[Rfam]
Rfam assigns this 67-nucleotide sequence from Tenacibaculum jejuense to the family "DUF805 RNA". The source organism's lineage runs through Bacteria, Pseudomonadati, Flavobacteriia, Flavobacteriales and Tenacibaculum. It is annotated as a cis-regulatory element.
RNA sequence: UUAUAGUGAAGCAGACCUCACUUAAAAAAACGUGGCGGAUUCCGAAAAGCCCAAGAGUAGGAGUAUA
Numbered sequence: 001u002u003a004u005a006g007u008g009a010a011g012c013a014g015a016c017c018u019c020a021c022u023u024a025a026a027a028a029a030a031c032g033u034g035g036c037g038g039a040u041u042c043c044g045a046a047a048a049g050c051c052c053a054a055g056a057g058u059a060g061g062a063g064u065a066u067a
Base pairs, nucleotide, nucleotide: 006021007020008019009018034051035050036049041061042060